RNA sequence: AUCACCGCUGGACGGACGAGGUUGUGAGGGUUGGGGAACCCGGUGACCAGCUUCAUCCGAGAUGGCUCGGGUUUAAGGGAGCCCGGGACCGAUCGCUCCGGCGAAGGAG
Numbered sequence: 001a002u003c004a005c006c007g008c009u010g011g012a013c014g015g016a017c018g019a020g021g022u023u024g025u026g027a028g029g030g031u032u033g034g035g036g037a038a039c040c041c042g043g044u045g046a047c048c049a050g051c052u053u054c055a056u057c058c059g060a061g062a063u064g065g066c067u068c069g070g071g072u073u074u075a076a077g078g079g080a081g082c083c084c085g086g087g088a089c090c091g092a093u094c095g096c097u098c099c100g101g102c103g104a105a106g107g108a109g
Base pairs, nucleotide, nucleotide: 006103007102008101009100010099011098012097013059014058015057016056018054019053020052021051022050023049024048028041029040030039031038032037061094062093063092064090065089068085069084070083071082072081

Shown here is a 109-nucleotide RNA, a member of the family "Actinomyces-1 RNA". Rfam classes the family as a small RNA. It is one of the family's seed sequences.